[Rfam]
RNA sequence: AAACUAACGCAAGCGCCGGGACCAGCCAGCACUGACCGCUGUCCAGAUGGGUUCCAAAAUAUAUAUGGAUAGGUCACUGGUUAGUACUGGUUGGUUGACGAGGCGGGGGUUUAUCGAGGCAUCGGCGGGUGCCCCCCGGUCCGGUUACGACCGACAAAGGCGUUACAAAACCCGGGAGCAAUCCCGGGGACAAAGGGCGCCGGGUAACCCUU
Number, nucleotide and partner (000 for none) at each position: 001a000002a000003a000004c000005u000006a000007a000008c000009g000010c000011a000012a000013g000014c000015g000016c000017c000018g000019g000020g096021a095022c094023c093024a092025g091026c090027c089028a000029g087030c000031a000032c000033u000034g000035a000036c000037c000038g000039c000040u000041g000042u000043c000044c000045a000046g000047a000048u000049g000050g000051g000052u000053u000054c000055c000056a000057a000058a000059a000060u000061a000062u000063a000064u000065a000066u000067g000068g000069a000070u000071a000072g000073g000074u000075c000076a000077c000078u000079g000080g000081u000082u000083a000084g000085u000086a000087c029088u000089g027090g026091u025092u024093g023094g022095u021096u020097g000098a000099c000100g000101a000102g000103g000104c000105g136106g135107g134108g133109g132110u000111u000112u000113a000114u125115c124116g123117a122118g000119g000120c000121a000122u117123c116124g115125g114126c000127g000128g000129g000130u000131g000132c109133c108134c107135c106136c105137c153138g152139g151140u150141c149142c000143g000144g000145u000146u000147a000148c000149g141150a140151c139152c138153g137154a000155c000156a000157a000158a000159g201160g200161c199162g198163u197164u196165a000166c000167a000168a000169a000170a000171c188172c187173c186174g185175g184176g183177a182178g000179c000180a000181a000182u177183c176184c175185c174186g173187g172188g171189g000190a000191c000192a000193a000194a000195g000196g164197g163198c162199g161200c160201c159202g000203g000204g000205u000206a000207a000208c000209c000210c000211u000212u000